[Rfam]
RNA sequence: ACCUAGGGUAGAGGUGCUGUGGUUAUUAGUAUUUAUUCUUAGCUGGCAAGCUGUGAAGAAUAGAAAAAGGAACUGCGGCCGAAGAAAGAUUUCUGGCAAGGACUCUUUCUGGUUUUGUAUAUAAUAUAUGCAGAACUGUCACUAUUCUCUUAUAGUGGAGAGCUACAAGGUGC
Numbered sequence: 001a002c003c004u005a006g007g008g009u010a011g012a013g014g015u016g017c018u019g020u021g022g023u024u025a026u027u028a029g030u031a032u033u034u035a036u037u038c039u040u041a042g043c044u045g046g047c048a049a050g051c052u053g054u055g056a057a058g059a060a061u062a063g064a065a066a067a068a069g070g071a072a073c074u075g076c077g078g079c080c081g082a083a084g085a086a087a088g089a090u091u092u093c094u095g096g097c098a099a100g101g102a103c104u105c106u107u108u109c110u111g112g113u114u115u116u117g118u119a120u121a122u123a124a125u126a127u128a129u130g131c132a133g134a135a136c137u138g139u140c141a142c143u144a145u146u147c148u149c150u151u152a153u154a155g156u157g158g159a160g161a162g163c164u165a166c167a168a169g170g171u172g173c
Stems, first nucleotide, its partner, number of pairs: 008166004016079009032064008083110007091102004111137011139158007
RNA: Lysine riboswitch aptamer